[Rfam]
This 114-nucleotide RNA sequence from [Flexibacter] sp. ATCC 35208 belongs to the Rfam family "SAM riboswitch aptamer (S box leader)".
RNA sequence: AUCUUAUCAAGAAAGGCAGAGGGAAAUGGCCCUGCGAAGCCUUAGCAACCAUCCUGUUCCACCAAACAGGAAAGGUGCUACAUCCAUCCCGGAUCAAACCGGGAAAGAUAAGUC
Numbered sequence: 001a002u003c004u005u006a007u008c009a010a011g012a013a014a015g016g017c018a019g020a021g022g023g024a025a026a027u028g029g030c031c032c033u034g035c036g037a038a039g040c041c042u043u044a045g046c047a048a049c050c051a052u053c054c055u056g057u058u059c060c061a062c063c064a065a066a067c068a069g070g071a072a073a074g075g076u077g078c079u080a081c082a083u084c085c086a087u088c089c090c091g092g093a094u095c096a097a098a099c100c101g102g103g104a105a106a107g108a109u110a111a112g113u114c
Stems, first nucleotide, its partner, number of pairs: 003112006013043005021032003026087004044079004049075002052071006083106001088103005